[Rfam]
RNA sequence: AAAAAGGGUCGGUUGGUUAUAUAUACCACGCAGGUCUUCGGACCUGAGCUGUAUGGACUAUCAAGACAUAUGGCCGACAAAAUUUUUGUGACCUUAUAGGGUUGGCACGCUUUGCCGACCCUUCCU
Dot-bracket structure: .......(((((.((((.......))))(.((((((....)))))).)(((((((...........))))))))))))...................((((((((((.....))))))))))....

The record is a 126-nucleotide RNA sequence from Physcomitrium patens, which matches "U11 spliceosomal RNA" in Rfam. Its family is annotated with pre-mRNA 5'-splice site binding, U11 snRNP and mRNA 5'-splice site recognition in the Gene Ontology. The literature on the family includes a 1988 paper in Proc Natl Acad Sci U S A by Montzka and Steitz, "Additional low-abundance human small nuclear ribonucleoproteins: U11, U12, etc". Lineage of the source: Eukaryota > Embryophyta > Bryophytina > Funariales > Physcomitrium. The family's consensus secondary structure is taken from published work. The family is grouped with related families in Rfam's "U1 clan".